[Rfam]
Rfam assigns this 59-nucleotide RNA from Banisteriopsis caapi to the family "Plastid-psbA-3 3UTR RNA". The sequence is in the family's curated seed alignment. From the family's description: Plastid psbA-3 is a non-coding RNA (ncRNA) present in plastids. It was identified in inverted repeat sequences in the 3 prime untranslate region (3UTR) of photosystem II quinone-binding protein (psbA). Pairs were carried over by alignment from the consensus structure, which was predicted with LocARNA. A reference for the family is Richter et al. (2023), "Retrograde signaling in plants: A critical review focusing on the GUN pathway and beyond", Plant Commun. Taxonomically the source falls in Banisteriopsis (Eukaryota, Streptophytina, Magnoliopsida, Pentapetalae).

RNA sequence: UAAGGAGCAAUAGCUAAUCUCUUGAUAGAACAAGAGAUUAGCUAUUGCUCCUUAUUUUU
Numbered sequence: 001u002a003a004g005g006a007g008c009a010a011u012a013g014c015u016a017a018u019c020u021c022u023u024g025a026u027a028g029a030a031c032a033a034g035a036g037a038u039u040a041g042c043u044a045u046u047g048c049u050c051c052u053u054a055u056u057u058u059u
Stems, first nucleotide, its partner, number of pairs: 001054014019036006